[Rfam]
RNA: Ascomycota telomerase RNA, nucleotides 979 to 1161
RNA sequence: CCCACCCAAAGGUGCCUAUAUACUGGACAGGGUCCAGAUGGCCCUAAGGGAUUCCUCGACUCUAACCUGAAAAGGCGAGCCUGAGAUGACAGGGUGGUUUUUAUGGAUGUCUUUUGUCCACCCGUUCACGUCCUCCGCAAUUCUUGCUACAAGAUGGAGAGAUUACAAAAACCGGUCCUUGUU
Numbered sequence: 001c002c003c004a005c006c007c008a009a010a011g012g013u014g015c016c017u018a019u020a021u022a023c024u025g026g027a028c029a030g031g032g033u034c035c036a037g038a039u040g041g042c043c044c045u046a047a048g049g050g051a052u053u054c055c056u057c058g059a060c061u062c063u064a065a066c067c068u069g070a071a072a073a074g075g076c077g078a079g080c081c082u083g084a085g086a087u088g089a090c091a092g093g094g095u096g097g098u099u100u101u102u103a104u105g106g107a108u109g110u111c112u113u114u115u116g117u118c119c120a121c122c123c124g125u126u127c128a129c130g131u132c133c134u135c136c137g138c139a140a141u142u143c144u145u146g147c148u149a150c151a152a153g154a155u156g157g158a159g160a161g162a163u164u165a166c167a168a169a170a171a172c173c174g175g176u177c178c179u180u181g182u183u
Stems, first nucleotide, its partner, number of pairs: 006048001010045003014042003053089002055085004060079002066077001068073001106177003109172002112170006131162002133159004142154004